[Rfam]
Rfam assigns this 75-nucleotide RNA from Chelonia mydas to the family "Mammalian CPEB3 ribozyme". Its family is annotated with RNA nuclease activity in the Gene Ontology. The literature on the family includes a 2004 paper in Nature by Teixeira et al., "Autocatalytic RNA cleavage in the human beta-globin pre-mRNA promotes transcription termination".
RNA sequence: CCUGGGCUUCAGGGCCAUAACAGGAACAUUCAUGUCAUGACCCCUGUCAGAUUCUCUGGAUCUGCGAAUCCUGCU
Numbered sequence: 001c002c003u004g005g006g007c008u009u010c011a012g013g014g015c016c017a018u019a020a021c022a023g024g025a026a027c028a029u030u031c032a033u034g035u036c037a038u039g040a041c042c043c044c045u046g047u048c049a050g051a052u053u054c055u056c057u058g059g060a061u062c063u064g065c066g067a068a069u070c071c072u073g074c075u
Stems, first nucleotide, its partner, number of pairs: 012043003016039001019075001021073005026038001048064007